[Rfam]
The record is a 103-nucleotide RNA from Chelatococcus asaccharovorans, which matches "TPP riboswitch aptamer (THI element)" in Rfam.
Its family is annotated with thiamine pyrophosphate binding in the Gene Ontology.
Rfam's curators write: Vitamin B(1) in its active form thiamin pyrophosphate (TPP) is an essential coenzyme that is synthesised by coupling of pyrimidine and thiazole moieties in bacteria. The previously detected thiamin-regulatory element, thi box was extended, resulting in a new, highly conserved RNA secondary structure, the THI element, which is widely distributed in eubacteria and also occurs in some archaea. Analysis of operon structures identified a large number of new candidate thiamin-regulated genes, mostly transporters, in various prokaryotic organisms. The THI element is a riboswitch that directly binds to TPP to regulate gene expression through a variety of mechanisms in archaea, bacteria and eukaryotes. through a variety of mechanisms in archaea, bacteria and eukaryotes. Tandem TPP riboswitches have been reported where both TPP riboswitches respond independently to TPP. The structure of TPP riboswitch has been reported for Escherichia coli and Arabidopsis thaliana.
The source organism's lineage runs through Bacteria, Pseudomonadati, Hyphomicrobiales, Chelatococcaceae and Chelatococcus.
RNA sequence: UCAUAUUCCGAGGGGCGUGCCGCACGGCACUGAGAUAGCGGUGAGCUGGACCCUUGAACCUGAUCCGGGUGAUGCCGGCGUAGGAACGGAACAUGGGGCAACU
Numbered sequence: 001u002c003a004u005a006u007u008c009c010g011a012g013g014g015g016c017g018u019g020c021c022g023c024a025c026g027g028c029a030c031u032g033a034g035a036u037a038g039c040g041g042u043g044a045g046c047u048g049g050a051c052c053c054u055u056g057a058a059c060c061u062g063a064u065c066c067g068g069g070u071g072a073u074g075c076c077g078g079c080g081u082a083g084g085a086a087c088g089g090a091a092c093a094u095g096g097g098g099c100a101a102c103u
Stems, first nucleotide, its partner, number of pairs: 006091005011054004016048001017030005037047003059084004065078004